[Rfam]
RNA sequence: GAUCCGAUAGUAUGGUAGAAAGAUAUUAAUUUCUUUCUACCAUACUUUAUGUUAUUGUAUUGUUUAAGGUGUACGU
Numbered sequence: 001g002a003u004c005c006g007a008u009a010g011u012a013u014g015g016u017a018g019a020a021a022g023a024u025a026u027u028a029a030u031u032u033c034u035u036u037c038u039a040c041c042a043u044a045c046u047u048u049a050u051g052u053u054a055u056u057g058u059a060u061u062g063u064u065u066a067a068g069g070u071g072u073a074c075g076u
Stems, first nucleotide, its partner, number of pairs: 009046015

The family of this 76-nucleotide RNA from Papaver somniferum is "Plastid-psbM 3UTR RNA".
Rfam's curators write: Plastid psbM is a non-coding RNA (ncRNA) recognised in plastids.
By type it is a cis-regulatory element.
Pairs were carried over by alignment from the consensus structure, which was predicted with LocARNA.
Lineage of the source: Eukaryota > Embryophyta > Magnoliopsida > Ranunculales > Papaver.